[Rfam]
Nucleotides: 100
Base pairs, nucleotide, nucleotide: 023090024089025088026087027086028085029084030083035081036080037079038078039077040076041075042074048072049071050070051069052068
Number, partner (000 for none) and nucleotide at each position: 001000c002000a003000a004000a005000c006000u007000a008000u009000u010000c011000u012000u013000a014000a015000a016000c017000g018000a019000c020000a021000c022000a023090c024089a025088c026087a027086u028085a029084c030083c031000g032000g033000c034000a035081c036080g037079u038078a039077g040076u041075u042074c043000u044000g045000g046000g047000u048072g049071c050070c051069c052068g053000a054000a055000g056000a057000a058000a059000a060000a061000a062000a063000a064000u065000c066000g067000a068052c069051g070050g071049g072048u073000u074042g075041g076040g077039c078038u079037a080036u081035g082000g083030g084029g085028u086027a087026u088025g089024u090023g091000g092000a093000g094000g095000u096000u097000u098000a099000a100000c
The record is a 100-nucleotide RNA sequence from Oceanospirillum sediminis, which matches "t44 RNA" in Rfam. A search with the family's covariance model found it, with a score of 79 bits. Pairs were carried over by alignment from the consensus structure, which was predicted with LocARNA. NCBI's taxonomy places the organism under Bacteria, Gammaproteobacteria, Oceanospirillales, Oceanospirillaceae, Oceanospirillum.